[Rfam]
This 194-nucleotide RNA sequence belongs to the Rfam family "IMES-1 RNA motif". Rfam's curators put it in the seed alignment.
RNA sequence: GAGAUAACUAGAUAGGAAAAGGAACUGCAGAACCUAGAACUAGAAAGUUACUCAGGAAGAGACCAGAAGGGUGAAAGUUUAAGGUAGCUCAGUCGACAAUAGAGUAAACUUAACCACCGAGAGUAAAAGAGAUCUUACUCAAGGAUGCAGAAGGUAAUCUCACUUUUGACACCCACUGUUCUCGAUAAGAAAAA
Numbered sequence: 001g002a003g004a005u006a007a008c009u010a011g012a013u014a015g016g017a018a019a020a021g022g023a024a025c026u027g028c029a030g031a032a033c034c035u036a037g038a039a040c041u042a043g044a045a046a047g048u049u050a051c052u053c054a055g056g057a058a059g060a061g062a063c064c065a066g067a068a069g070g071g072u073g074a075a076a077g078u079u080u081a082a083g084g085u086a087g088c089u090c091a092g093u094c095g096a097c098a099a100u101a102g103a104g105u106a107a108a109c110u111u112a113a114c115c116a117c118c119g120a121g122a123g124u125a126a127a128a129g130a131g132a133u134c135u136u137a138c139u140c141a142a143g144g145a146u147g148c149a150g151a152a153g154g155u156a157a158u159c160u161c162a163c164u165u166u167u168g169a170c171a172c173c174c175a176c177u178g179u180u181c182u183c184g185a186u187a188a189g190a191a192a193a194a
Stems, first nucleotide, its partner, number of pairs: 001053003013042003065177002069174002079113005085107001087105004121140005129161005148168006